Small nucleolar RNA SNORA1: a 131-nucleotide sequence from Vulpes vulpes.
The base pairs follow the family's consensus structure, which was predicted with PFOLD.
The organism belongs to Vulpes, within Eukaryota.
Rfam classes the family as an H/ACA-box small nucleolar RNA.
From the family's description: ACA1 is a member of the H/ACA class of snoRNA that guide the sites of modification of uridines to pseudouridines.
Rfam links the family to the GO terms RNA processing and nucleolus.
The match comes from Rfam's covariance-model search (101 bits).
[Rfam]
RNA sequence: UCUCUCAAAUCUUUAAAAAAAAAAUUGUGGUUUUUUUUUUUUAAAGAAGUUUUGUGGCUAUAUUGAAACACAAGUUAUGCUUCCAUCACAGCAGAUCUAUUGCAGUGGUGACAAUGAGACUUGUAACGUUU
Dot-bracket structure: ((.(..............((((((............))))))...........).))............(((((.........((((((...............)))))).........))))).......